[Rfam]
RNA: 6S / SsrS RNA
Organism: Paucimonas lemoignei
RNA sequence: AGUCUCCUGCCGUGUUCGCGAUUGUCAUAUAUUCCUUGAACCAUUUAUGUGCAUAGGUCGCGGAAAAUUGUUCGAUGGGCGUGAGCGUCGCUAGUCCGAUGAACCCGAAAUUGAACUGACUGUGACCACCUUGAACCGUAAGGUUCGGGAUGCCGGCAAAGCGGCACAGGCGGGUCUUUA
Numbered sequence: 001a002g003u004c005u006c007c008u009g010c011c012g013u014g015u016u017c018g019c020g021a022u023u024g025u026c027a028u029a030u031a032u033u034c035c036u037u038g039a040a041c042c043a044u045u046u047a048u049g050u051g052c053a054u055a056g057g058u059c060g061c062g063g064a065a066a067a068u069u070g071u072u073c074g075a076u077g078g079g080c081g082u083g084a085g086c087g088u089c090g091c092u093a094g095u096c097c098g099a100u101g102a103a104c105c106c107g108a109a110a111u112u113g114a115a116c117u118g119a120c121u122g123u124g125a126c127c128a129c130c131u132u133g134a135a136c137c138g139u140a141a142g143g144u145u146c147g148g149g150a151u152g153c154c155g156g157c158a159a160a161g162c163g164g165c166a167c168a169g170g171c172g173g174g175u176c177u178u179u180a
Stems, first nucleotide, its partner, number of pairs: 002178001006174006012167004017163003033150003037147006056127003060123004067117001070116007081105001086101005